[Rfam]
RNA sequence: AUCGACAGCACCUUGGCGAUAUAGGGGAUCAAAGGCAGAUUCAGGAUCAGCAGGACCAAAUUGCCGAUAAACAUCGACAUGAUCACCGCCCAAAAGAUCUGUGGCUCAUCAAUCAUCAGGCGUGGCCC
Numbered sequence: 001a002u003c004g005a006c007a008g009c010a011c012c013u014u015g016g017c018g019a020u021a022u023a024g025g026g027g028a029u030c031a032a033a034g035g036c037a038g039a040u041u042c043a044g045g046a047u048c049a050g051c052a053g054g055a056c057c058a059a060a061u062u063g064c065c066g067a068u069a070a071a072c073a074u075c076g077a078c079a080u081g082a083u084c085a086c087c088g089c090c091c092a093a094a095a096g097a098u099c100u101g102u103g104g105c106u107c108a109u110c111a112a113u114c115a116u117c118a119g120g121c122g123u124g125g126c127c128c
Stems, first nucleotide, its partner, number of pairs: 003018002006015003026128002029125003034121001036119001038114003043109001045107002048104001050102005057096001061093003073083003